Small Cajal body specific RNA 23: a 124-nucleotide RNA sequence from Molossus molossus. Its family is annotated with nucleolus, RNA processing and Cajal body in the Gene Ontology. The family's consensus secondary structure was predicted with RNAfold. Lineage of the source: Eukaryota > Metazoa > Theria > Molossidae > Molossus. By type it is a small Cajal body RNA.
RNA sequence: GGGCUCCCCGGGGCUCGGUCCUGUCCGUGUGGUCCUGACCCACCCUCCGUGAGCAACAGAAACGGGACUGGAUUGGGGGUGUCCUGUCUGAGUGGACAUGGGAUACCACGGUUCCAGCACGACA
Numbered sequence: 001g002g003g004c005u006c007c008c009c010g011g012g013g014c015u016c017g018g019u020c021c022u023g024u025c026c027g028u029g030u031g032g033u034c035c036u037g038a039c040c041c042a043c044c045c046u047c048c049g050u051g052a053g054c055a056a057c058a059g060a061a062a063c064g065g066g067a068c069u070g071g072a073u074u075g076g077g078g079g080u081g082u083c084c085u086g087u088c089u090g091a092g093u094g095g096a097c098a099u100g101g102g103a104u105a106c107c108a109c110g111g112u113u114c115c116a117g118c119a120c121g122a123c124a
Stems, first nucleotide, its partner, number of pairs: 003054004008049001012044002017040004025032002065120001068117004073111003078107008086097004

scaRNAs are a specific class of small nuclear RNAs which localise to the Cajal bodies and guide the modification of RNA polymerase II transcribed spliceosomal RNAs U1, U2, U4, U5 and U12. ACA11 belongs to the H/ACA box class of guide RNAs as it has the predicted hairpin-hinge-hairpin-tail structure,the conserved H/ACA-box motifs and is found associated with GAR1. H/ACA snRNAs are predicted to guide the modification of uridines to pseudouridines in substrate RNAs however, no target RNA has been identified for scaRNA ACA11.